[Rfam]
RNA sequence: AUGUGACCUGUGGGUUUCCCUUUGUCAUCCUAUGCCUGGAGCUACCUGUAAGGCAGAGAUGGCAAAGGGAGGCUCAGCCGUCUGUCGA
Numbered sequence: 001a002u003g004u005g006a007c008c009u010g011u012g013g014g015u016u017u018c019c020c021u022u023u024g025u026c027a028u029c030c031u032a033u034g035c036c037u038g039g040a041g042c043u044a045c046c047u048g049u050a051a052g053g054c055a056g057a058g059a060u061g062g063c064a065a066a067g068g069g070a071g072g073c074u075c076a077g078c079c080g081u082c083u084g085u086c087g088a
Base pairs, nucleotide, nucleotide: 017070018069019068020067021066022065024063025062028059029058031056034054035053036052037051
Dot-bracket structure: ................((((((.((..((.(..((((.............)))).).))..)).))))))..................
Background
The record is an 88-nucleotide RNA sequence from Mastacembelus armatus, which matches "mir-204 microRNA precursor family" in Rfam. Lineage of the source: Eukaryota > Metazoa > Chordata > Percomorphaceae > Mastacembelus. The literature on the family includes a 2005 paper in Genes Dev by Chen et al., "The developmental miRNA profiles of zebrafish as determined by small RNA cloning". Its family is annotated with RISC complex and miRNA-mediated post-transcriptional gene silencing in the Gene Ontology.